[Rfam]
RNA sequence: UGCCUUGUUAACUGUAUAGAGCACAGUGCUCCGUUAUGUGUCUCUUCCAUACAACAAGGCCACAUCAAUGCACAGGUUUUGCUUCCAUCAUGUAGAACAUAUUGCAUUGGUGACAAUGAGACCUGCUAUAUUC
Numbered sequence: 001u002g003c004c005u006u007g008u009u010a011a012c013u014g015u016a017u018a019g020a021g022c023a024c025a026g027u028g029c030u031c032c033g034u035u036a037u038g039u040g041u042c043u044c045u046u047c048c049a050u051a052c053a054a055c056a057a058g059g060c061c062a063c064a065u066c067a068a069u070g071c072a073c074a075g076g077u078u079u080u081g082c083u084u085c086c087a088u089c090a091u092g093u094a095g096a097a098c099a100u101a102u103u104g105c106a107u108u109g110g111u112g113a114c115a116a117u118g119a120g121a122c123c124u125g126c127u128a129u130a131u132u133c
Stems, first nucleotide, its partner, number of pairs: 002060003006056003018043002021041004073125004086112005

This 133-nucleotide RNA sequence from Aquarana catesbeiana belongs to the Rfam family "Small nucleolar RNA SNORA1". Taxonomically the source falls in Aquarana (Eukaryota, Gnathostomata, Neobatrachia, Ranidae). The family has 29 seed sequences and 1,282 matches in Rfam 15.1. Rfam describes the family as follows. ACA1 is a member of the H/ACA class of snoRNA that guide the sites of modification of uridines to pseudouridines. Gene Ontology terms of the family: nucleolus and RNA processing. The match comes from Rfam's covariance-model search (71 bits). Rfam classes the family as an H/ACA-box small nucleolar RNA.